[Rfam]
RNA sequence: ACAAUCAAUCAGAGCAUGAGACAGCGAUGUCGCAUGUGAUGGUAUGCCUUUUGAUUAAUGA
Number, nucleotide and partner (000 for none) at each position: 001a000002c000003a000004a000005u000006c000007a000008a043009u042010c041011a040012g000013a000014g037015c036016a035017u034018g033019a000020g000021a000022c000023a000024g000025c000026g000027a000028u000029g000030u000031c000032g000033c018034a017035u016036g015037u014038g000039a000040u011041g010042g009043u008044a000045u000046g000047c060048c000049u058050u000051u000052u000053g000054a000055u000056u000057a000058a049059u000060g047061a000

The family of this 61-nucleotide part of an RNA from uncultured Nitrospirae bacterium MY3-5B is "Bacterial large subunit ribosomal RNA".